[Rfam]
RNA sequence: CAAUACCCAAGUUGCACAACUUGGUUAAGAGGGUCAAGCAGCGUAAAAGGCGUCUGCUAGUGGGGAUGGGUGCCCUCCGCGUGCGGGCCCGGCUCCCUGCGACACCGUCAAAUUGCGGGAAGUUCCUAAAGCCAGCGCUACCAAGCGGGCGCCGAAAGGCAGUCCGUGGCCGGGGUAAUGACCUAGGGUACGGUAAAAACGCGCUGGAUGCUACAAUGGAUGAUCCGCAGCCAAGCCCUAAGUCCGGCCCCCUCCGGCCGGAUAUGGGUGCAGUUCAACGACUAAAUGGUGGUGGGUUCCGGCGGGAACGCGUGCUGCGCACCCCGUCGGGGCUUAAGAUAUAGUCUGGCCUCCCGCGAAAGCGGGAG
Number, nucleotide and partner (000 for none) at each position: 001c000002a000003a000004u000005a000006c000007c000008c000009a000010a000011g000012u000013u000014g000015c000016a000017c000018a000019a000020c000021u000022u000023g000024g000025u000026u000027a000028a000029g000030a000031g000032g000033g000034u000035c000036a000037a000038g000039c000040a000041g000042c000043g000044u000045a000046a000047a000048a000049g000050g000051c000052g000053u000054c000055u000056g000057c000058u000059a000060g000061u000062g000063g000064g000065g000066a000067u000068g000069g000070g000071u000072g000073c000074c000075c000076u000077c000078c000079g000080c000081g000082u000083g000084c000085g000086g000087g000088c000089c000090c000091g000092g000093c000094u000095c000096c000097c000098u000099g000100c000101g000102a000103c294104a293105c292106c291107g290108u000109c288110a287111a000112a000113u000114u229115g228116c227117g226118g225119g224120a000121a000122g000123u000124u220125c219126c218127u000128a000129a000130a000131g000132c000133c000134a000135g000136c000137g000138c000139u000140a000141c000142c000143a000144a000145g000146c000147g000148g000149g000150c000151g000152c000153c000154g000155a000156a000157a000158g000159g000160c000161a000162g000163u000164c000165c000166g000167u000168g000169g000170c000171c000172g000173g000174g000175g000176u000177a000178a000179u000180g000181a000182c000183c000184u000185a000186g000187g000188g000189u000190a000191c000192g000193g000194u000195a000196a000197a000198a000199a000200c000201g000202c000203g000204c000205u000206g000207g000208a000209u000210g000211c000212u000213a000214c000215a000216a000217u000218g126219g125220a124221u000222g000223a000224u119225c118226c117227g116228c115229a114230g274231c273232c000233a000234a000235g269236c268237c267238c266239u000240a000241a000242g000243u262244c261245c260246g259247g258248c257249c256250c000251c000252c000253u000254c000255c000256g249257g248258c247259c246260g245261g244262a243263u000264a000265u000266g238267g237268g236269u235270g000271c000272a000273g231274u230275u000276c000277a000278a347279c000280g346281a345282c344283u343284a342285a000286a000287u110288g109289g000290u107291g106292g105293u104294g103295g000296g333297u332298u331299c330300c329301g328302g327303c326304g325305g324306g323307a000308a000309c000310g000311c000312g000313u000314g000315c000316u000317g000318c000319g000320c000321a000322c000323c306324c305325c304326g303327u302328c301329g300330g299331g298332g297333c296334u000335u000336a000337a000338g000339a000340u000341a000342u284343a283344g282345u281346c280347u278348g000349g000350c000351c000352u000353c366354c365355c364356g363357c362358g000359a000360a000361a000362g357363c356364g355365g354366g353367a000368g000
Overview: Group I catalytic intron: a 368-nucleotide RNA from Thermothielavioides terrestris. Rfam's curators write: Group I catalytic introns are large self-splicing ribozymes. They catalyse their own excision from mRNA, tRNA and rRNA precursors in a wide range of organisms. The core secondary structure consists of 9 paired regions (P1-P9). These fold to essentially two domains - the P4-P6 domain (formed from the stacking of P5, P4, P6 and P6a helices) and the P3-P9 domain (formed from the P8, P3, P7 and P9 helices). The secondary structure mark-up for this family represents only this conserved core. Group I catalytic introns often have long ORFs inserted in loop regions. The window size for this search is chosen to minimise search time and catch the small examples. A larger window size will find more matches. The organism belongs to Thermothielavioides terrestris, within Eukaryota. Its family is annotated with Group I intron splicing in the Gene Ontology. The literature on the family includes a 1996 paper in Science by Cate et al., "Crystal structure of a group I ribozyme domain: principles of RNA packing".